[Rfam]
RNA sequence: CCCCCCAGCAAUGGGCAAAGAGACGCCUUGUUGGUGGUGUUCUUAUAUCAGUCCUGGGCAAAGCACAGGACAGUUAUAUGUUCAUCUUAACUUGAUGCCUGGCUCAGUGGUCAAAGCUGUUUUAUGCCUGGGACUCAUAA
Numbered sequence: 001c002c003c004c005c006c007a008g009c010a011a012u013g014g015g016c017a018a019a020g021a022g023a024c025g026c027c028u029u030g031u032u033g034g035u036g037g038u039g040u041u042c043u044u045a046u047a048u049c050a051g052u053c054c055u056g057g058g059c060a061a062a063g064c065a066c067a068g069g070a071c072a073g074u075u076a077u078a079u080g081u082u083c084a085u086c087u088u089a090a091c092u093u094g095a096u097g098c099c100u101g102g103c104u105c106a107g108u109g110g111u112c113a114a115a116g117c118u119g120u121u122u123u124a125u126g127c128c129u130g131g132g133a134c135u136c137a138u139a140a
Stems, first nucleotide, its partner, number of pairs: 003058003008053001012050003018044003022041006080134004094128001096126001100124003105119002108116001
The family of this 140-nucleotide RNA from Mus musculus is "Small nucleolar RNA SNORA48". Lineage of the source: Eukaryota > Chordata > Vertebrata > Mus > Mus. It is annotated as an H/ACA-box small nucleolar RNA. A reference for the family is Ofengand and Bakin (1997), "Mapping to nucleotide resolution of pseudouridine residues in large subunit ribosomal RNAs from representative eukaryotes, prokaryotes, archaebacteria, mitochondria and chloroplasts", J Mol Biol. About the family: The snoRNA ACA 48 has been identified to guide pseudouridylation of the residue U3797 in the 28S rRNA subunit.